Early nodulin 40: a 274-nucleotide RNA sequence from Morus notabilis. Rfam links the family to the GO term nodulation. The literature on the family includes a 2007 paper in Nucleic Acids Res by Gultyaev and Roussis, "Identification of conserved secondary structures and expansion segments in enod40 RNAs reveals new enod40 homologues in plants". The organism belongs to Morus, within Eukaryota. The family's RNA type in Rfam is non-coding RNA gene. Pairs were carried over by alignment from the consensus structure, which is taken from published work.
[Rfam]
RNA sequence: AUGGAAUCAGAUUUCUGGGAAGAACCCUUUAAUGGGCCUUUCUAAGACAGCAAAUUGGAGAAUGGAUGGCCAAGUCCUCCUCCAGAUUUCAACAGUUUGUCUAAGUCUUUCUUUCUCUCGGCCAUUUGGGUCUCAGCUAAUUGUGAUGACAGAUUAAUGAAGAAGAAGAAGAAGAAGAAGAAGAAUGAUGAAGCAGAGAGGCUUUUUGAAAGAAGGCUUUAGCAAACCGGCAAGUCACAAAACGGCAAAUGGACUCUGUCACGUACCGAGUCCC
Number, nucleotide and partner (000 for none) at each position: 001a000002u000003g000004g000005a000006a000007u000008c000009a000010g000011a000012u000013u000014u000015c000016u000017g000018g000019g000020a000021a000022g000023a000024a000025c000026c000027c000028u000029u000030u000031a000032a000033u000034g000035g000036g000037c000038c000039u000040u000041u000042c000043u000044a000045a000046g000047a000048c000049a000050g000051c000052a000053a000054a000055u000056u000057g083058g082059a081060g000061a000062a000063u000064g000065g000066a000067u000068g000069g000070c000071c000072a000073a000074g000075u000076c000077c000078u000079c000080c000081u059082c058083c057084a000085g000086a000087u000088u000089u000090c000091a000092a000093c000094a000095g227096u226097u225098u224099g223100u222101c000102u000103a000104a000105g000106u000107c000108u000109u000110u000111c000112u000113u000114u216115c215116u214117c000118u000119c000120g000121g000122c000123c000124a000125u000126u000127u000128g000129g000130g000131u000132c000133u000134c000135a000136g000137c000138u000139a000140a000141u000142u000143g000144u000145g000146a000147u000148g000149a000150c000151a000152g000153a000154u000155u000156a000157a000158u000159g000160a000161a000162g000163a000164a000165g000166a000167a000168g000169a000170a000171g000172a000173a000174g000175a000176a000177g000178a000179a000180g000181a000182a000183g000184a000185a000186u000187g000188a000189u000190g000191a000192a000193g000194c000195a000196g000197a000198g000199a000200g000201g000202c000203u000204u000205u000206u000207u000208g000209a000210a000211a000212g000213a000214a116215g115216g114217c000218u000219u000220u000221a000222g100223c099224a098225a097226a096227c095228c000229g000230g000231c000232a000233a000234g000235u000236c000237a000238c000239a000240a000241a000242a000243c000244g000245g000246c000247a000248a000249a000250u000251g000252g272253a271254c270255u269256c268257u000258g000259u000260c000261a000262c000263g000264u000265a000266c000267c000268g256269a255270g254271u253272c252273c000274c000